Shown here is a 71-nucleotide sequence from Poecilia formosa, a member of the family "Small nucleolar RNA SNORD99".
The family's consensus secondary structure was predicted with RNAalifold.
Clan: SNORD58 clan.
For this family Rfam cites "RNomics: an experimental approach that identifies 201 candidates for novel, small, non-messenger RNAs in mouse" (Huttenhofer et al., EMBO J, 2001).

[Rfam]
RNA sequence: UCUGGUCUAUGAUGACUCUAAAGUGAGCAGACUGUUGGAUGAAGCUUGCGGAUAUGGGACUGAGAUCAGAC
Numbered sequence: 001u002c003u004g005g006u007c008u009a010u011g012a013u014g015a016c017u018c019u020a021a022a023g024u025g026a027g028c029a030g031a032c033u034g035u036u037g038g039a040u041g042a043a044g045c046u047u048g049c050g051g052a053u054a055u056g057g058g059a060c061u062g063a064g065a066u067c068a069g070a071c
Stems, first nucleotide, its partner, number of pairs: 001070005